[Rfam]
RNA sequence: GAGUGGGACACCCUUCCCCAACGAAGGGCGCAUAUCUGUAAGGAUACCACCG
Numbered sequence: 001g002a003g004u005g006g007g008a009c010a011c012c013c014u015u016c017c018c019c020a021a022c023g024a025a026g027g028g029c030g031c032a033u034a035u036c037u038g039u040a041a042g043g044a045u046a047c048c049a050c051c052g
Base pairs, nucleotide, nucleotide: 011028012027013026014025015024016023033046034045035044036043037042